[Rfam]
RNA: radC RNA
Organism: Zophobihabitans entericus
RNA sequence: AUGAUACAGCCAUGUUUAGUCGAGGUACUCGACAACAUCCCAGGCAAUCAUGGUUUUUAAGAUUGCGGUAUCUGUUAAAGAUACUAACCAUCGGCCAGCUCGUCAAACACCCACCUACACGAGCGAUUAUCAUUUUGAUAAGGGUGU
Numbered sequence: 001a002u003g004a005u006a007c008a009g010c011c012a013u014g015u016u017u018a019g020u021c022g023a024g025g026u027a028c029u030c031g032a033c034a035a036c037a038u039c040c041c042a043g044g045c046a047a048u049c050a051u052g053g054u055u056u057u058u059a060a061g062a063u064u065g066c067g068g069u070a071u072c073u074g075u076u077a078a079a080g081a082u083a084c085u086a087a088c089c090a091u092c093g094g095c096c097a098g099c100u101c102g103u104c105a106a107a108c109a110c111c112c113a114c115c116u117a118c119a120c121g122a123g124c125g126a127u128u129a130u131c132a133u134u135u136u137g138a139u140a141a142g143g144g145u146g147u
Stems, first nucleotide, its partner, number of pairs: 012038003016034001019033006044066006052089004067085007119147003127141006